mir-1994 microRNA precursor family: a 65-nucleotide sequence from Lottia gigantea. The family's consensus secondary structure was predicted with RNAalifold. NCBI's taxonomy places the organism under Eukaryota, Opisthokonta, Bilateria, Protostomia, Lottia. The sequence is in the family's curated seed alignment.

RNA sequence: UUCUCAGGAAGAACAUUCUGUCUACAUGUUACACUAACCAUGAGACAGUGUGUCCUCCCUCAGGC
Numbered sequence: 001u002u003c004u005c006a007g008g009a010a011g012a013a014c015a016u017u018c019u020g021u022c023u024a025c026a027u028g029u030u031a032c033a034c035u036a037a038c039c040a041u042g043a044g045a046c047a048g049u050g051u052g053u054c055c056u057c058c059c060u061c062a063g064g065c
Stems, first nucleotide, its partner, number of pairs: 003063002007058003011054002014052003018048006026041003